[Rfam]
RNA sequence: AUGCACCAGAAGUCAUAUUAAUUCCCUAUAUGAAUAUCCAUUUCUACUUUGUCAGCUGGGAUUUUCUUAUAUUCAGUUGAUUUUCAUGGGUGGUAUAUGA
Numbered sequence: 001a002u003g004c005a006c007c008a009g010a011a012g013u014c015a016u017a018u019u020a021a022u023u024c025c026c027u028a029u030a031u032g033a034a035u036a037u038c039c040a041u042u043u044c045u046a047c048u049u050u051g052u053c054a055g056c057u058g059g060g061a062u063u064u065u066c067u068u069a070u071a072u073u074c075a076g077u078u079g080a081u082u083u084u085c086a087u088g089g090g091u092g093g094u095a096u097a098u099g100a
Base pairs, nucleotide, nucleotide: 038093039092040091041090042089051081052080053079054078055077056076057075058074
This 100-nucleotide sequence from Ricinus communis belongs to the Rfam family "Small nucleolar RNA snoR99".
Rfam links the family to the GO terms nucleolus and RNA processing.
Pairs were carried over by alignment from the consensus structure, which was predicted with WAR.
NCBI's taxonomy places the organism under Eukaryota, Gunneridae, fabids, Acalypheae, Ricinus.
By type it is an H/ACA-box small nucleolar RNA.